[Rfam]
RNA sequence: GCUGGCAAGUGAUGAACAGAUAUCCUACACUCUCAAUGGAAAAAUUCCACGUGUGGACCAAUAAUCUCCGCUUAUUAUCUGAUGCCUUG
Numbered sequence: 001g002c003u004g005g006c007a008a009g010u011g012a013u014g015a016a017c018a019g020a021u022a023u024c025c026u027a028c029a030c031u032c033u034c035a036a037u038g039g040a041a042a043a044a045u046u047c048c049a050c051g052u053g054u055g056g057a058c059c060a061a062u063a064a065u066c067u068c069c070g071c072u073u074a075u076u077a078u079c080u081g082a083u084g085c086c087u088u089g
Stems, first nucleotide, its partner, number of pairs: 004086004